[Rfam]
RNA sequence: AAUUUCGGAUAAUCGCGGCGGAUCAGCCGAGGAAAGUCCAUGCUCGCACAAGCUGAGAUGCUUGUAGUGUUCGUGCUUAGUGAAAUAAUAAGCUAAGGGAGUAUUUAUACUUACGGCAGCUAAACAACCUAAGGCCUAGUGCGAUGGUUUAGUCAGCUCUAAGGUGCCACAGAGACGAGUCUUAUUAGAAAUAAUAAGAAUGGAACGGGUAAACCCCUCGAGCGAGCAACCCAAACAAAGGUAGGGGCACUCUCUCUAACAGGAAUUCAACUUACGAGAGAGACAAAUUUAUUUGUAGAUAGAUGGUUAUCCCAUCACGAUGAUUCCUAUGUCUUCGCGGUGGACAGAACAUGGCUUAUAGAA
Numbered sequence: 001a002a003u004u005u006c007g008g009a010u011a012a013u014c015g016c017g018g019c020g021g022a023u024c025a026g027c028c029g030a031g032g033a034a035a036g037u038c039c040a041u042g043c044u045c046g047c048a049c050a051a052g053c054u055g056a057g058a059u060g061c062u063u064g065u066a067g068u069g070u071u072c073g074u075g076c077u078u079a080g081u082g083a084a085a086u087a088a089u090a091a092g093c094u095a096a097g098g099g100a101g102u103a104u105u106u107a108u109a110c111u112u113a114c115g116g117c118a119g120c121u122a123a124a125c126a127a128c129c130u131a132a133g134g135c136c137u138a139g140u141g142c143g144a145u146g147g148u149u150u151a152g153u154c155a156g157c158u159c160u161a162a163g164g165u166g167c168c169a170c171a172g173a174g175a176c177g178a179g180u181c182u183u184a185u186u187a188g189a190a191a192u193a194a195u196a197a198g199a200a201u202g203g204a205a206c207g208g209g210u211a212a213a214c215c216c217c218u219c220g221a222g223c224g225a226g227c228a229a230c231c232c233a234a235a236c237a238a239a240g241g242u243a244g245g246g247g248c249a250c251u252c253u254c255u256c257u258a259a260c261a262g263g264a265a266u267u268c269a270a271c272u273u274a275c276g277a278g279a280g281a282g283a284c285a286a287a288u289u290u291a292u293u294u295g296u297a298g299a300u301a302g303a304u305g306g307u308u309a310u311c312c313c314a315u316c317a318c319g320a321u322g323a324u325u326c327c328u329a330u331g332u333c334u335u336c337g338c339g340g341u342g343g344a345c346a347g348a349a350c351a352u353g354g355c356u357u358a359u360a361g362a363a
Stems, first nucleotide, its partner, number of pairs: 004363003007359001008311007016029004034357003038354005043226005048065006071221003075217001076097006098114001099112005115216002118158004126149004134142002164214002166210003180199008230246003250282007283296005313342004318337003
RNA: Bacterial RNase P class B
Organism: Falseniella ignava